This 168-nucleotide RNA sequence from Pontiella sulfatireligans belongs to the Rfam family "Group II catalytic intron D1-D4-3".
Gene Ontology term of the family: Group II intron splicing.

RNA sequence: UUGCUGGUAACGGCGGGGUCUGAAGGAAGCGAUAGGAAGUGAACGGUACAUAACGGUUGUAAACCUGAUUCGGCAGGCGCAGAAGGUAAGCGUGCAAAAUAGCGCGAAGCCUGGUACUCGGACAGACUGCGUUUGUGAUUGAGGAUGGAAUCGUUCACAGGGAGCCGG
Numbered sequence: 001u002u003g004c005u006g007g008u009a010a011c012g013g014c015g016g017g018g019u020c021u022g023a024a025g026g027a028a029g030c031g032a033u034a035g036g037a038a039g040u041g042a043a044c045g046g047u048a049c050a051u052a053a054c055g056g057u058u059g060u061a062a063a064c065c066u067g068a069u070u071c072g073g074c075a076g077g078c079g080c081a082g083a084a085g086g087u088a089a090g091c092g093u094g095c096a097a098a099a100u101a102g103c104g105c106g107a108a109g110c111c112u113g114g115u116a117c118u119c120g121g122a123c124a125g126a127c128u129g130c131g132u133u134u135g136u137g138a139u140u141g142a143g144g145a146u147g148g149a150a151u152c153g154u155u156c157a158c159a160g161g162g163a164g165c166c167g168g
Base pairs, nucleotide, nucleotide: 001016002015003014004013005012006011030168041156042155043154044153045152046151047149049147050146051145064144065143066142068140073136074135075134077132078131079130080129081128082127084112085111086110087109090105091104092103093102
Dot-bracket structure: ((((((....)))))).............(..........(((((((.(((............(((.(....(((.((((((.((((..((((........))))...))))..............)))))).)))...).)))))).).))))))...........)